[Rfam]
RNA sequence: GGGCACACGGUGGAUGCCUUGGCAUCAGGAGCCGAUGAAGGACGUGGGAGGCUGCGUUAAGCCUCGGGGAGUCGCCAACCUGACGUUGAUCCGGGGAUGUCCGAAUGGGGAAACCUAGCACCAGUCAUGUGGUGUUGCCGCCGUCUGAAUGUAUAGGGCGGUUGGUGGUGACGCGGGGAAGUGAAACAUCUCAGUACCCGUAGGAGAAGAAAACAAUAGUGAUUCCGUGAGUAGUGGUGAGCGAAAGCGGAGGAGGCUAAACCGUGCGCGUGUGAUAGCCGGCGGGUGUUGCGUGUGCGGGGUUGUGGGAGUCCCUGGAGGAGGCCGCUGUCUCCUCAAGCAGUGAUAAAUCGGUGUGGUAGUCGAACGUUCUGGGAAGGGCGGCCGGAGACCGUGAGAGCCGGGUAGGUGAAACUGCAUCGACUGCUGGGGGUUGUCCCGAGUAGCACGGGGCUCGAGGAAUCCUGUGUGAAUCUGCCAGGACCACCUGGUAAGCCUGAAUACUUCCUGAUGACCGAUAGUGAACGAGUACCGUGAGGGAAAGGUGAAAAGCGCCCCGGUGAGGGGUCGUGAAAUAGUACCUGAAACCGUGUGCCUACA
Numbered sequence: 001g002g003g004c005a006c007a008c009g010g011u012g013g014a015u016g017c018c019u020u021g022g023c024a025u026c027a028g029g030a031g032c033c034g035a036u037g038a039a040g041g042a043c044g045u046g047g048g049a050g051g052c053u054g055c056g057u058u059a060a061g062c063c064u065c066g067g068g069g070a071g072u073c074g075c076c077a078a079c080c081u082g083a084c085g086u087u088g089a090u091c092c093g094g095g096g097a098u099g100u101c102c103g104a105a106u107g108g109g110g111a112a113a114c115c116u117a118g119c120a121c122c123a124g125u126c127a128u129g130u131g132g133u134g135u136u137g138c139c140g141c142c143g144u145c146u147g148a149a150u151g152u153a154u155a156g157g158g159c160g161g162u163u164g165g166u167g168g169u170g171a172c173g174c175g176g177g178g179a180a181g182u183g184a185a186a187c188a189u190c191u192c193a194g195u196a197c198c199c200g201u202a203g204g205a206g207a208a209g210a211a212a213a214c215a216a217u218a219g220u221g222a223u224u225c226c227g228u229g230a231g232u233a234g235u236g237g238u239g240a241g242c243g244a245a246a247g248c249g250g251a252g253g254a255g256g257c258u259a260a261a262c263c264g265u266g267c268g269c270g271u272g273u274g275a276u277a278g279c280c281g282g283c284g285g286g287u288g289u290u291g292c293g294u295g296u297g298c299g300g301g302g303u304u305g306u307g308g309g310a311g312u313c314c315c316u317g318g319a320g321g322a323g324g325c326c327g328c329u330g331u332c333u334c335c336u337c338a339a340g341c342a343g344u345g346a347u348a349a350a351u352c353g354g355u356g357u358g359g360u361a362g363u364c365g366a367a368c369g370u371u372c373u374g375g376g377a378a379g380g381g382c383g384g385c386c387g388g389a390g391a392c393c394g395u396g397a398g399a400g401c402c403g404g405g406u407a408g409g410u411g412a413a414a415c416u417g418c419a420u421c422g423a424c425u426g427c428u429g430g431g432g433g434u435u436g437u438c439c440c441g442a443g444u445a446g447c448a449c450g451g452g453g454c455u456c457g458a459g460g461a462a463u464c465c466u467g468u469g470u471g472a473a474u475c476u477g478c479c480a481g482g483a484c485c486a487c488c489u490g491g492u493a494a495g496c497c498u499g500a501a502u503a504c505u506u507c508c509u510g511a512u513g514a515c516c517g518a519u520a521g522u523g524a525a526c527g528a529g530u531a532c533c534g535u536g537a538g539g540g541a542a543a544g545g546u547g548a549a550a551a552g553c554g555c556c557c558c559g560g561u562g563a564g565g566g567g568u569c570g571u572g573a574a575a576u577a578g579u580a581c582c583u584g585a586a587a588c589c590g591u592g593u594g595c596c597u598a599c600a
Base pairs, nucleotide, nucleotide: 001597002596003595004594005593006592007591008590009589010588016582017545018544021516022515023513024512025511026510027509028508029507030505031504032168033167040102041101042100043056044055045054062096063095064094065093066092067091068090071084072083073082107116108115109114117136118135119134120133121132122131123130138165139164140162141161142160143159144158145157146156172203173201174200175199176198177197183190184189213220214219223501224251225250226249227248228247234242235241254498255497256496257495262300263299264298265297266296267295268294269293270292271291272290307440308439309438311434312433313432314431315430349425351423352422353421354420355419356418357417358416359415360414362410363409364408368383369382370381371380372379386390392404393403394402446470447469448468449467450466451465452464453463477492478491479490480489481488532539533538555567556566557565558564